[Rfam]
Background
Rfam assigns this 85-nucleotide RNA from Microstroma glucosiphilum to the family "tRNA". On this family, see Hou, Trends Biochem Sci 1993: "The tertiary structure of tRNA and the development of the genetic code". It is annotated as a transfer RNA. The family's consensus secondary structure is taken from published work. Lineage of the source: Eukaryota > Ustilaginomycotina > Exobasidiomycetes > Microstromataceae > Microstroma.
RNA sequence: GACAAUUUAGCUCAGUUGGUUAGAGCGUGGAGCUAAUAUGCGUAAGCUUACUCCAAGGUCAACAGUUCGAGCCUGUUACUUGUCA
Numbered sequence: 001g002a003c004a005a006u007u008u009a010g011c012u013c014a015g016u017u018g019g020u021u022a023g024a025g026c027g028u029g030g031a032g033c034u035a036a037u038a039u040g041c042g043u044a045a046g047c048u049u050a051c052u053c054c055a056a057g058g059u060c061a062a063c064a065g066u067u068c069g070a071g072c073c074u075g076u077u078a079c080u081u082g083u084c085a
Base pairs, nucleotide, nucleotide: 001084002083003082004081005080007078010026011025012024013023028055029054030053031052032051061077062076063075064074065073